[Rfam]
A member of the RNA family "mir-130 microRNA precursor family" from Pteropus vampyrus, 73 nucleotides long. A search with the family's covariance model found it, with a score of 45 bits. Pairs were carried over by alignment from the consensus structure, which was predicted with PFOLD. Rfam links the family to the GO terms RISC complex and miRNA-mediated post-transcriptional gene silencing. The literature on the family includes a 2002 paper in Curr Biol by Lagos-Quintana et al., "Identification of tissue-specific microRNAs from mouse".
RNA sequence: UGGCUGGCAGAGUCCUUCUCACAUCGCAUCACUCUGGCCAGCGAUGCGAUGUGAGAAGGACUCUGCCUCCCUC
Numbered sequence: 001u002g003g004c005u006g007g008c009a010g011a012g013u014c015c016u017u018c019u020c021a022c023a024u025c026g027c028a029u030c031a032c033u034c035u036g037g038c039c040a041g042c043g044a045u046g047c048g049a050u051g052u053g054a055g056a057a058g059g060a061c062u063c064u065g066c067c068u069c070c071c072u073c
Stems, first nucleotide, its partner, number of pairs: 002072002006067005012061008022051009